[Rfam]
RNA: S10-Clostridia ribosomal protein leader
RNA sequence: AAAUUGCGAUGAAGCAAGAGGUUGCCGUAUUUUCGGGGAAUUCUUGCUGAGUAUGUCUGAUCAAGAAUCGGGCGACAA
Numbered sequence: 001a002a003a004u005u006g007c008g009a010u011g012a013a014g015c016a017a018g019a020g021g022u023u024g025c026c027g028u029a030u031u032u033u034c035g036g037g038g039a040a041u042u043c044u045u046g047c048u049g050a051g052u053a054u055g056u057c058u059g060a061u062c063a064a065g066a067a068u069c070g071g072g073c074g075a076c077a078a
Stems, first nucleotide, its partner, number of pairs: 014047003018043003025036003054077004061072002